Notes:
A member of the RNA family "Plastid-rps18 3UTR RNA" from Corymbia citriodora, 57 nucleotides long. Rfam 15.1 lists 1,462 matches to the family in 409 species. A reference for the family is Richter et al. (2023), "Retrograde signaling in plants: A critical review focusing on the GUN pathway and beyond", Plant Commun. Plastid rps18 is a non-coding RNA (ncRNA) present in plastids. It was identified as a short stem-loop motif in the 3 prime untranslate region (3UTR) of rps18 gene. It scores 65 bits against the family's covariance model. The source organism's lineage runs through Eukaryota, Viridiplantae, Streptophyta, Eucalypteae and Corymbia citriodora.
[Rfam]
RNA sequence: UGCAAGCAUUUUACAAUUAAGAAGCAACCAUCUCUUGGAAAGAUUGUGUAUUAAUCU
Dot-bracket structure: .................(((((.(......).)))))....................